Small nucleolar RNA SNORD99: a 74-nucleotide RNA sequence. The sequence is in the family's curated seed alignment. By type it is a C/D-box small nucleolar RNA.
[Rfam]
RNA sequence: ACUGGUCCAUGAUGAAACCCAUUAUCAGUGGACAUCUAUGGAUGAGAAAUGCGGAUAUGGGACUGAGACCAGUU
Numbered sequence: 001a002c003u004g005g006u007c008c009a010u011g012a013u014g015a016a017a018c019c020c021a022u023u024a025u026c027a028g029u030g031g032a033c034a035u036c037u038a039u040g041g042a043u044g045a046g047a048a049a050u051g052c053g054g055a056u057a058u059g060g061g062a063c064u065g066a067g068a069c070c071a072g073u074u
Stems, first nucleotide, its partner, number of pairs: 001073005
A reference for the family is Huttenhofer et al. (2001), "RNomics: an experimental approach that identifies 201 candidates for novel, small, non-messenger RNAs in mouse", EMBO J. Gene Ontology terms of the family: RNA processing and nucleolus.